RNA: Eukaryotic large subunit ribosomal RNA, nucleotides 415 to 660
RNA sequence: CAGUAGAAGAGAAAUUAUUUUUUAGAGAAAAAAGUUAUGAAUUAAAAUUGGGGAAGAAUGAUACUUAAUCAGGUCAUUAUCUCAAAUUGAAAGUCAUCUCUGCAUUCUUUGGAAAUAGACAGAAUGAGUUCGAGCUGCAAGAAUAAGUUGGCUUGUUUAUUCAACCAAUCGAAGUUGCAGGACGGACUGAGGGAUCUUAGGAUGAUUCUGUCAAAAUGGCUUUUACUGACCCGUCUUGAAACACGG
Numbered sequence: 001c002a003g004u005a006g007a008a009g010a011g012a013a014a015u016u017a018u019u020u021u022u023u024a025g026a027g028a029a030a031a032a033a034g035u036u037a038u039g040a041a042u043u044a045a046a047a048u049u050g051g052g053g054a055a056g057a058a059u060g061a062u063a064c065u066u067a068a069u070c071a072g073g074u075c076a077u078u079a080u081c082u083c084a085a086a087u088u089g090a091a092a093g094u095c096a097u098c099u100c101u102g103c104a105u106u107c108u109u110u111g112g113a114a115a116u117a118g119a120c121a122g123a124a125u126g127a128g129u130u131c132g133a134g135c136u137g138c139a140a141g142a143a144u145a146a147g148u149u150g151g152c153u154u155g156u157u158u159a160u161u162c163a164a165c166c167a168a169u170c171g172a173a174g175u176u177g178c179a180g181g182a183c184g185g186a187c188u189g190a191g192g193g194a195u196c197u198u199a200g201g202a203u204g205a206u207u208c209u210g211u212c213a214a215a216a217u218g219g220c221u222u223u224u225a226c227u228g229a230c231c232c233g234u235c236u237u238g239a240a241a242c243a244c245g246g
Stems, first nucleotide, its partner, number of pairs: 001228009012217001018071001021068002024065001075210002079206003231246004
Dot-bracket structure: (((((((((..(.....(..((.(........................................).))..)...((..(((..........................................................................................................................)))..))......)..)))))))))..((((........))))